[Rfam]
RNA sequence: AAGCAAGCCUUCCAGCAUGGCCGGGUCUGGUGUGACCCCGCUCAUUCCUGCAGUGCUUGCAAAAGCAGCCUUGAGAUGGUUUGAGGCCUUGCUCCGUGCUGCUUUUGCUUUUGGAGCAAGGUUAUAGAAAUUUCAGACAUGC
Dot-bracket structure: ..((((((.........(((..(((((......)))))...)))..........))))))...........(((((..........((((((.(((...............))).)))))).........))))).......

The family of this 142-nucleotide RNA from Crocodylus porosus is "Small nucleolar RNA SNORA9". Taxonomically the source falls in Crocodylus (Eukaryota, Eumetazoa, Deuterostomia, Teleostomi). About the family: ACA9 is a member of the H/ACA class of snoRNA that guide the sites of modification of uridines to pseudouridines. It is annotated as an H/ACA-box small nucleolar RNA.